[Rfam]
Shown here is a 54-nucleotide RNA sequence from Denticeps clupeoides, a member of the family "UnaL2 LINE 3' element". The base pairs follow the family's consensus structure, which is taken from published work. The family's RNA type in Rfam is cis-regulatory element. A search with the family's covariance model found it, with a score of 57 bits.

RNA sequence: GUAACUACUGAUUGUAAGUCGCUCUGGAUAAGGGCGUCUGUUAAAUGCCGUAAA
Numbered sequence: 001g002u003a004a005c006u007a008c009u010g011a012u013u014g015u016a017a018g019u020c021g022c023u024c025u026g027g028a029u030a031a032g033g034g035c036g037u038c039u040g041u042u043a044a045a046u047g048c049c050g051u052a053a054a
Stems, first nucleotide, its partner, number of pairs: 013043001014041003020036006
Notes:
About the family: The eel long interspersed element (LINE) UnaL2 and its partner short interspersed element (SINE) share a conserved 3' tail containing a stem-loop that is critical for their retrotransposition.